[Rfam]
RNA: c-di-AMP riboswitch aptamer (ydaO/yuaA leader)
Organism: Actinomadura rubteroloni
RNA sequence: UCCGCGGGAACGCCCGUCCGGCGUUCCCGCGGAGCCGGGGACCCACUGUGUCCUCAUCCGGGGUGAAUCGGCCCGUCACGGGCCGUAGGGCGGCUUCCACGCCCGAACCCGUCAGCUAACCCGGCAGGCGGUCAUGGAAGCGAGG
Numbered sequence: 001u002c003c004g005c006g007g008g009a010a011c012g013c014c015c016g017u018c019c020g021g022c023g024u025u026c027c028c029g030c031g032g033a034g035c036c037g038g039g040g041a042c043c044c045a046c047u048g049u050g051u052c053c054u055c056a057u058c059c060g061g062g063g064u065g066a067a068u069c070g071g072c073c074c075g076u077c078a079c080g081g082g083c084c085g086u087a088g089g090g091c092g093g094c095u096u097c098c099a100c101g102c103c104c105g106a107a108c109c110c111g112u113c114a115g116c117u118a119a120c121c122c123g124g125c126a127g128g129c130g131g132u133c134a135u136g137g138a139a140g141c142g143a144g145g
Stems, first nucleotide, its partner, number of pairs: 001033014034125006044060001061110003069085004088104004